[Rfam]
This 171-nucleotide sequence from Corticibacter populi belongs to the Rfam family "FMN riboswitch aptamer (RFN element)". Rfam 15.1 lists 6,230 matches to the family in 5,120 species.
RNA sequence: CCUUGUUCUCAGGGCGGGGUGAAAGUCCCCACCGGCGGUAACGUGUUGGCCUGGCGCUGCCUGGCCGAGGCGAAGUCCGCGAGCGCUGCGGGGCCAUCCAGUUCCCGCAGGUCAGCAGAUCUGGUGUGAAUCCAGAACCGACGGUCACAGUCCGGAUGAAAGAGAACCGCG
Numbered sequence: 001c002c003u004u005g006u007u008c009u010c011a012g013g014g015c016g017g018g019g020u021g022a023a024a025g026u027c028c029c030c031a032c033c034g035g036c037g038g039u040a041a042c043g044u045g046u047u048g049g050c051c052u053g054g055c056g057c058u059g060c061c062u063g064g065c066c067g068a069g070g071c072g073a074a075g076u077c078c079g080c081g082a083g084c085g086c087u088g089c090g091g092g093g094c095c096a097u098c099c100a101g102u103u104c105c106c107g108c109a110g111g112u113c114a115g116c117a118g119a120u121c122u123g124g125u126g127u128g129a130a131u132c133c134a135g136a137a138c139c140g141a142c143g144g145u146c147a148c149a150g151u152c153c154g155g156a157u158g159a160a161a162g163a164g165a166a167c168c169g170c171g
Stems, first nucleotide, its partner, number of pairs: 003169001005167006017029003031151002033140002035080004075138002083116002120136005142154003